The record is a 165-nucleotide RNA from Oribacterium sp. oral taxon 078, which matches "Clostridiales-1 RNA" in Rfam. Lineage of the source: Bacteria > Bacillati > Lachnospiraceae > Oribacterium > Oribacterium sp. oral taxon 078. The match comes from Rfam's covariance-model search (79 bits).

RNA sequence: UGUUCGUGUGAGAACAUACUCUUCCGCGACGUGCUUGCACGAAAGAGGAAGAGGGACUUUAUGACACGCCCCCCUCAUGAGCAUGCAGCGGGGCGCAGCCACGCGGGAAUGCGAAUGAAGGGCGCGGGGCGGGAGCGGCCGGGCCGCGAAGCCACGCGGGAAUCA
Numbered sequence: 001u002g003u004u005c006g007u008g009u010g011a012g013a014a015c016a017u018a019c020u021c022u023u024c025c026g027c028g029a030c031g032u033g034c035u036u037g038c039a040c041g042a043a044a045g046a047g048g049a050a051g052a053g054g055g056a057c058u059u060u061a062u063g064a065c066a067c068g069c070c071c072c073c074c075u076c077a078u079g080a081g082c083a084u085g086c087a088g089c090g091g092g093g094c095g096c097a098g099c100c101a102c103g104c105g106g107g108a109a110u111g112c113g114a115a116u117g118a119a120g121g122g123c124g125c126g127g128g129g130c131g132g133g134a135g136c137g138g139c140c141g142g143g144c145c146g147c148g149a150a151g152c153c154a155c156g157c158g159g160g161a162a163u164c165a
Stems, first nucleotide, its partner, number of pairs: 001165002004162001007066003013059002017055001019053007027045001030041004071122003075118004081112004088104003092100003124157003128153003135147004